[Rfam]
Notes
This 89-nucleotide sequence from Bacillus sp. 1NLA3E belongs to the Rfam family "Selenocysteine transfer RNA". The family is grouped with related families in Rfam's "tRNA clan". The organism belongs to Bacillus, within Bacteria. The match comes from Rfam's covariance-model search (57 bits). For this family Rfam cites "Eukaryotic selenocysteine tRNA has the 9/4 secondary structure" (Mizutani and Goto, FEBS Lett, 2000). The base pairs follow the family's consensus structure, which is taken from published work.

RNA sequence: GGCUGAAUGGGGUACUGGUGUCCUCCACGGUCUUCAAAACCGCUUGUGACCUGCGUGCCAGGUCAGGUGGGUUCGAUUCCCACACAGUC
Numbered sequence: 001g002g003c004u005g006a007a008u009g010g011g012g013u014a015c016u017g018g019u020g021u022c023c024u025c026c027a028c029g030g031u032c033u034u035c036a037a038a039a040c041c042g043c044u045u046g047u048g049a050c051c052u053g054c055g056u057g058c059c060a061g062g063u064c065a066g067g068u069g070g071g072u073u074c075g076a077u078u079c080c081c082a083c084a085c086a087g088u089c
Base pairs, nucleotide, nucleotide: 001089002088003087004086005085010025011024012023014021015020027044028042029041030040031039047065048064049063050062051061068082069081070080071079